RNA sequence: AGUUCAAAGUUUGAGGCCACAGCAGAAUAAUUCACAGUGUAGUACUAUCAGAUCUCAAUAGAUCUGUGAAAUCUGCU
Numbered sequence: 001a002g003u004u005c006a007a008a009g010u011u012u013g014a015g016g017c018c019a020c021a022g023c024a025g026a027a028u029a030a031u032u033c034a035c036a037g038u039g040u041a042g043u044a045c046u047a048u049c050a051g052a053u054c055u056c057a058a059u060a061g062a063u064c065u066g067u068g069a070a071a072u073c074u075g076c077u
Stems, first nucleotide, its partner, number of pairs: 013045001016043002021077006030038001049066007
RNA: Mammalian CPEB3 ribozyme
Organism: Crocodylus porosus